[Rfam]
RNA sequence: UAUUCUUACUAGGGGGGGCAAGUAUGCCUGAGACGAGUAAUCGGACCCUUUGAACCUGAUUAAGUUAAGACUUGCGUAGGGAAGUGAAUUUAUCGUUUU
Dot-bracket structure: .....(((((((((..((((....))))......((....))...)))).....((((..((((......))))..))))..)))))............
This 99-nucleotide RNA sequence from Weissella oryzae belongs to the Rfam family "TPP riboswitch aptamer (THI element)". Pairs were carried over by alignment from the consensus structure, which is taken from published work. NCBI's taxonomy places the organism under Bacteria, Bacillati, Bacillota, Lactobacillales, Weissella oryzae.